[Rfam]
The record is a 68-nucleotide sequence from Apteryx australis, which matches "MAT2A 3'UTR stem loop F" in Rfam.
On this family, see Parker et al., Genome Res 2011: "New families of human regulatory RNA structures identified by comparative analysis of vertebrate genomes".
The organism belongs to Apteryx, within Eukaryota.
The family's RNA type in Rfam is cis-regulatory element.
RNA sequence: CCCGGGAUCACGGCUCAUUUGGCCGGUGUGGUACAGAGAAGCCGGCUUGUUUACGUGCCUGUCCUGGG
Numbered sequence: 001c002c003c004g005g006g007a008u009c010a011c012g013g014c015u016c017a018u019u020u021g022g023c024c025g026g027u028g029u030g031g032u033a034c035a036g037a038g039a040a041g042c043c044g045g046c047u048u049g050u051u052u053a054c055g056u057g058c059c060u061g062u063c064c065u066g067g068g
Stems, first nucleotide, its partner, number of pairs: 001068007012059003017050002021047007028034002